[Rfam]
RNA sequence: CCGGGUCAUACAGGAGAGAGCGGCUUUCUGGCCGCCGCCGAAGGCGCAAGCGCACCCGCAAUCGCUCAGGCAAAAGGACUGUAUCAUCGGG
Numbered sequence: 001c002c003g004g005g006u007c008a009u010a011c012a013g014g015a016g017a018g019a020g021c022g023g024c025u026u027u028c029u030g031g032c033c034g035c036c037g038c039c040g041a042a043g044g045c046g047c048a049a050g051c052g053c054a055c056c057c058g059c060a061a062u063c064g065c066u067c068a069g070g071c072a073a074a075a076g077g078a079c080u081g082u083a084u085c086a087u088c089g090g091g
Stems, first nucleotide, its partner, number of pairs: 006086001008084006020035004037071003040067002044065003050059002